[Rfam]
RNA sequence: UGGAUCAAUGAUGAGUACCCUGGGGUGUCUGAAUCAAGGACUUUGAUUAAACCCUAUCUCUGAGAUCCAU
Number, nucleotide and partner (000 for none) at each position: 001u000002g068003g067004a066005u065006c064007a000008a000009u000010g000011a000012u000013g000014a000015g000016u000017a000018c000019c000020c000021u000022g000023g000024g000025g000026u000027g000028u000029c000030u000031g000032a000033a000034u000035c000036a000037a000038g000039g000040a000041c000042u000043u000044u000045g000046a000047u000048u000049a000050a000051a000052c000053c000054c000055u000056a000057u000058c000059u000060c000061u000062g000063a000064g006065a005066u004067c003068c002069a000070u000
Background:
Rfam assigns this 70-nucleotide RNA sequence from Fukomys damarensis to the family "Small nucleolar RNA SNORD113/SNORD114 family". The source organism's lineage runs through Eukaryota, Eumetazoa, Euteleostomi, Dipnotetrapodomorpha and Fukomys. The base pairs follow the family's consensus structure, which is taken from published work. About the family: The imprinted human domain at 14q32 contains two clusters of tandemly repeated small nucleolar RNAs named 14q(I) and 14q(II) snoRNAs. These two clusters are named SNORD113 and SNORD114 respectively in the HGNC approved gene symbol nomenclature. The snoRNAs found in both clusters are clearly related and are represented here by a single family. These snoRNAs are intron encoded and are processed from the tissue-specific non-coding human MEG8 RNA, which lies downstream of the imprinted genes DLK1 and GTL2. snoRNAs 14q(I) and 14q(II) differ from previously identified C/D box snoRNAs in their expression profiles and lack of complementarity to rRNA and snRNA. Homologues of these snoRNAs are found in the imprinted non-coding mouse transcript Rian, and in the rat non-coding Bsr (brain-specific repetitive) RNA. A search with the family's covariance model found it, with a score of 51 bits.